Annotation:
This 104-nucleotide RNA sequence from Mycobacterium intermedium belongs to the Rfam family "Mycobacterium sRNA ncrMT1302". For this family Rfam cites "A screen for non-coding RNA in Mycobacterium tuberculosis reveals a cAMP-responsive RNA that is expressed during infection" (Pelly et al., Gene, 2012).
RNA sequence: AAGAGACCAAUUCAAGCGCCGGAAAAGGGGUGACAGCCGGCCGCGUCCGAUCCGCAUAAGACGGAGUCCGACGCCCCCAGAGUCCGUCCGGGCCUGCCCUAUGC
Dot-bracket structure: ....(((...........((((..............))))..((((.....(((.......)))......)))).......))).....(((....))).....
Numbered sequence: 001a002a003g004a005g006a007c008c009a010a011u012u013c014a015a016g017c018g019c020c021g022g023a024a025a026a027g028g029g030g031u032g033a034c035a036g037c038c039g040g041c042c043g044c045g046u047c048c049g050a051u052c053c054g055c056a057u058a059a060g061a062c063g064g065a066g067u068c069c070g071a072c073g074c075c076c077c078c079a080g081a082g083u084c085c086g087u088c089c090g091g092g093c094c095u096g097c098c099c100u101a102u103g104c
Stems, first nucleotide, its partner, number of pairs: 005084003019040004043074004052064003090099003